Shown here is an 83-nucleotide RNA sequence from Salipaludibacillus neizhouensis, a member of the family "c-di-GMP-I riboswitch aptamer". The source organism's lineage runs through Bacteria, Bacillati, Bacilli, Bacillaceae and Salipaludibacillus. Its family is annotated with cyclic-di-GMP binding in the Gene Ontology.
RNA sequence: UCAUUGAAACGGCAAACUCAUUGAAAAGUGAGGACGCAAAGCUACAGGCCUAAGGAGAUCACUAUGGUUGCUGGGUUCCCAAA
Numbered sequence: 001u002c003a004u005u006g007a008a009a010c011g012g013c014a015a016a017c018u019c020a021u022u023g024a025a026a027a028g029u030g031a032g033g034a035c036g037c038a039a040a041g042c043u044a045c046a047g048g049c050c051u052a053a054g055g056a057g058a059u060c061a062c063u064a065u066g067g068u069u070g071c072u073g074g075g076u077u078c079c080c081a082a083a
Base pairs, nucleotide, nucleotide: 012037013036017032018031019030020029021028022027040077041076042075043074045073046072047071048068049067050066055062